RNA sequence: CCUUUGGAGCGUUACAUCAAACGAGAGUAGCACUACUGGACUUGGUUCAGGAGCGAAAUUGGACGCGAUGAAUGAGGAA
Numbered sequence: 001c002c003u004u005u006g007g008a009g010c011g012u013u014a015c016a017u018c019a020a021a022c023g024a025g026a027g028u029a030g031c032a033c034u035a036c037u038g039g040a041c042u043u044g045g046u047u048c049a050g051g052a053g054c055g056a057a058a059u060u061g062g063a064c065g066c067g068a069u070g071a072a073u074g075a076g077g078a079a
Stems, first nucleotide, its partner, number of pairs: 001077004009066005022061003030054002036050005